Description: Rfam assigns this 72-nucleotide RNA sequence from Echinops telfairi to the family "Small nucleolar RNA SNORD82". Gene Ontology terms of the family: nucleolus and RNA processing. It is one of the family's seed sequences. Rfam describes the family as follows. snoRNA U82 or Z25 is found in both humans and mice.
RNA sequence: GGCACAAAUGAUGAACCACAAAGGGACUUAAUACUGAUCAUCUUGAUGUGACUUAAUGAUCAGCUGAUGUGC
Numbered sequence: 001g002g003c004a005c006a007a008a009u010g011a012u013g014a015a016c017c018a019c020a021a022a023g024g025g026a027c028u029u030a031a032u033a034c035u036g037a038u039c040a041u042c043u044u045g046a047u048g049u050g051a052c053u054u055a056a057u058g059a060u061c062a063g064c065u066g067a068u069g070u071g072c
Base pairs, nucleotide, nucleotide: 002072003071004070005069006068